[Rfam]
RNA sequence: UUGCCCAAUGAUUAUAGCAAGACGCGUUAUUAUGAGGACUAAUGCUGGAACUCGUUCUCCUCCUCCUCCUCCUUCUUUGUCCCUUCCUCUUCACCUUUUACCCUCCUCACUUUCCUUAGGGUAUCCAGUGUCCUAUGAGCAAGACUGAGAUAUGAGGGCAA
Numbered sequence: 001u002u003g004c005c006c007a008a009u010g011a012u013u014a015u016a017g018c019a020a021g022a023c024g025c026g027u028u029a030u031u032a033u034g035a036g037g038a039c040u041a042a043u044g045c046u047g048g049a050a051c052u053c054g055u056u057c058u059c060c061u062c063c064u065c066c067u068c069c070u071c072c073u074u075c076u077u078u079g080u081c082c083c084u085u086c087c088u089c090u091u092c093a094c095c096u097u098u099u100a101c102c103c104u105c106c107u108c109a110c111u112u113u114c115c116u117u118a119g120g121g122u123a124u125c126c127a128g129u130g131u132c133c134u135a136u137g138a139g140c141a142a143g144a145c146u147g148a149g150a151u152a153u154g155a156g157g158g159c160a161a
Stems, first nucleotide, its partner, number of pairs: 001161006035058005